[Rfam]
RNA sequence: CUCUUAUCCAGAGUCGGCGCAGGGAACUGGCCCGCAACGCCGCAGCAACCGGCCCUCAUCACGGUACGGUGCUCACCAGCCCGAACGACCACGAUGGUCCCAUUCGGGGACGAUAAGAG
Numbered sequence: 001c002u003c004u005u006a007u008c009c010a011g012a013g014u015c016g017g018c019g020c021a022g023g024g025a026a027c028u029g030g031c032c033c034g035c036a037a038c039g040c041c042g043c044a045g046c047a048a049c050c051g052g053c054c055c056u057c058a059u060c061a062c063g064g065u066a067c068g069g070u071g072c073u074c075a076c077c078a079g080c081c082c083g084a085a086c087g088a089c090c091a092c093g094a095u096g097g098u099c100c101c102a103u104u105c106g107g108g109g110a111c112g113a114u115a116a117g118a119g
Stems, first nucleotide, its partner, number of pairs: 001119008013043001015042004022033003027079004044073004049069002051065001053063001080108006
A member of the RNA family "SAM riboswitch aptamer (S box leader)" from Deinococcus cellulosilyticus, 119 nucleotides long. The family's consensus secondary structure is taken from published work. A search with the family's covariance model found it, with a score of 52 bits.